RNA sequence: GGUUGGUCCAAGUGCAGUGGUAUUUACAACUAAUUGAUCACAAUCACUUAAAGAUUCCUUUGUUCCUUCUCCACUCCCACUGCUCUACUUGACCAGCAAAA
Numbered sequence: 001g002g003u004u005g006g007u008c009c010a011a012g013u014g015c016a017g018u019g020g021u022a023u024u025u026a027c028a029a030c031u032a033a034u035u036g037a038u039c040a041c042a043a044u045c046a047c048u049u050a051a052a053g054a055u056u057c058c059u060u061u062g063u064u065c066c067u068u069c070u071c072c073a074c075u076c077c078c079a080c081u082g083c084u085c086u087a088c089u090u091g092a093c094c095a096g097c098a099a100a101a
Stems, first nucleotide, its partner, number of pairs: 002097007010090002014086001016081005028064003032060002
Shown here is a 101-nucleotide RNA from Microcebus murinus, a member of the family "Y RNA".
The literature on the family includes a 2000 paper in Nucleic Acids Res by Teunissen et al., "Conserved features of Y RNAs: a comparison of experimentally derived secondary structures".
By type it is a non-coding RNA gene.
Lineage of the source: Eukaryota > Deuterostomia > Euarchontoglires > Primates > Microcebus.
Y RNAs are components of the Ro ribonucleoprotein particle (Ro RNP), in association with Ro60 and La proteins.
The family's consensus secondary structure is taken from published work.